[Rfam]
RNA sequence: UUUGGUAUGUGCGACUGGCGAUAACGUAGAUGACUACGGGGGAGCACAUAUUCAUAGCAGCCGUUCGCCUGGGCAAAGUAU
Numbered sequence: 001u002u003u004g005g006u007a008u009g010u011g012c013g014a015c016u017g018g019c020g021a022u023a024a025c026g027u028a029g030a031u032g033a034c035u036a037c038g039g040g041g042g043a044g045c046a047c048a049u050a051u052u053c054a055u056a057g058c059a060g061c062c063g064u065u066c067g068c069c070u071g072g073g074c075a076a077a078g079u080a081u
Base pairs, nucleotide, nucleotide: 004052005051006050007049008048009047010046011045012044015041016040017069018068019067020066021065026037027036028035029034060074061073062072
ZMP/ZTP riboswitch aptamer (pfl RNA motif): an 81-nucleotide RNA sequence from Paenibacillus sp. GP183. The organism belongs to Paenibacillus, within Bacteria. The base pairs follow the family's consensus structure, which is taken from published work.